A member of the RNA family "terC RNA" from Falsirhodobacter algicola, 62 nucleotides long. NCBI's taxonomy places the organism under Bacteria, Pseudomonadati, Rhodobacterales, Paracoccaceae, Falsirhodobacter. It scores 46 bits against the family's covariance model. The family has 129 seed sequences and 1,112 matches in Rfam 15.1.
RNA sequence: AUCGGUGACCGGGCCCCUCUGGCGUCAGUAAUGCGGCAACUCACGUGAUGUCGGCACCGCAA
Numbered sequence: 001a002u003c004g005g006u007g008a009c010c011g012g013g014c015c016c017c018u019c020u021g022g023c024g025u026c027a028g029u030a031a032u033g034c035g036g037c038a039a040c041u042c043a044c045g046u047g048a049u050g051u052c053g054g055c056a057c058c059g060c061a062a
Stems, first nucleotide, its partner, number of pairs: 006056002009054004022046004027041003